Record summary
MarS sRNA: a 150-nucleotide sequence from Streptococcus suis. Rfam describes the family as follows. Interacts with the 5'UTR of the mga transcript (the multiple virulence gene regulator gene) and was renamed MarS for mag-activating regulatory sRNA. In MarS deletion strains expression of mga and several Mga-activated genes is reduced. This down-regulation of virulence factors leads to increased susceptibility of the deletion strain to phagocytosis, reduced adherence to human keratinocytes. A reference for the family is Pappesch et al. (2017), "The Regulatory Small RNA MarS Supports Virulence of Streptococcus pyogenes", Sci Rep. Gene Ontology terms of the family: mRNA 5'-UTR binding and positive regulation of translation, ncRNA-mediated. Pairs were carried over by alignment from the consensus structure, which is taken from published work. Rfam classes the family as a small RNA.

RNA sequence: CUUGGUUGACAAGUUGAGUUCUUUCCCACUCCCUUCGACGCUAGGGAGGUCUUCAUUUAAUUGAAACGCAGGAGCGGACCUUGAAUAGUUGUGUGAACCUUCUAUUCUCAUCGGAAACGAUGCCCUUGCCCACCUUUAUGGUGGGCUUUU
Numbered sequence: 001c002u003u004g005g006u007u008g009a010c011a012a013g014u015u016g017a018g019u020u021c022u023u024u025c026c027c028a029c030u031c032c033c034u035u036c037g038a039c040g041c042u043a044g045g046g047a048g049g050u051c052u053u054c055a056u057u058u059a060a061u062u063g064a065a066a067c068g069c070a071g072g073a074g075c076g077g078a079c080c081u082u083g084a085a086u087a088g089u090u091g092u093g094u095g096a097a098c099c100u101u102c103u104a105u106u107c108u109c110a111u112c113g114g115a116a117a118c119g120a121u122g123c124c125c126u127u128g129c130c131c132a133c134c135u136u137u138a139u140g141g142u143g144g145g146c147u148u149u150u
Stems, first nucleotide, its partner, number of pairs: 011035003016031004043126004047081004067076003083107006109122004129145006